[Rfam]
RNA sequence: AGCAUCUUAGCUCAGAGGAAGAGCGUGGGGCUCAUAAAGGAAAAACCUAGUGUCACCCCAAGGCCGUCGGAUCGAGACCGACAGAUGCUA
Numbered sequence: 001a002g003c004a005u006c007u008u009a010g011c012u013c014a015g016a017g018g019a020a021g022a023g024c025g026u027g028g029g030g031c032u033c034a035u036a037a038a039g040g041a042a043a044a045a046c047c048u049a050g051u052g053u054c055a056c057c058c059c060a061a062g063g064c065c066g067u068c069g070g071a072u073c074g075a076g077a078c079c080g081a082c083a084g085a086u087g088c089u090a
Stems, first nucleotide, its partner, number of pairs: 001089007010024004026060005066082005
Shown here is a 90-nucleotide RNA sequence from Meira miltonrushii, a member of the family "tRNA".
It is annotated as a transfer RNA.
About the family: Transfer RNA (tRNA) molecules are approximately 80 nucleotides in length.
It scores 52 bits against the family's covariance model.
The family's consensus secondary structure is taken from published work.